Shown here is a 215-nucleotide sequence from Thecamonas trahens, a member of the family "Protozoan signal recognition particle RNA". Its family is annotated with signal recognition particle, endoplasmic reticulum targeting and SRP-dependent cotranslational protein targeting to membrane, signal sequence recognition in the Gene Ontology. Taxonomically the source falls in Thecamonas trahens (Eukaryota, Apusozoa, Apusomonadida, Apusomonadidae). The family's RNA type in Rfam is non-coding RNA gene.
RNA sequence: UGGACAGUCACUUGAACGUGACGGUCUGCGCGGGAAGAGCGCUAUUUUCGUGUAGACGCUGGGUCCUUGUACGCCCUACAGUCUCCGCUAGGACAUCCCCGAUGGGGGACGCCCUCUCGGAGUUAAAAAUGCGGAAACCGCAGGAGGCGAGACAUCGAACACUGUCACCGCAUGCUGGGGAAAGGUGCAGGGACGGCCUAGCUGAGCGAGGUGGC
Dot-bracket structure: ........................................(((..((((((......(((((((((((((((..(((.(((((((((..(((.(.(((((....))))).).)))..))))).(...)((((((.....((((....(((....)))....))))..)))))))))))))...).)))))))...)))))))...)))))).)))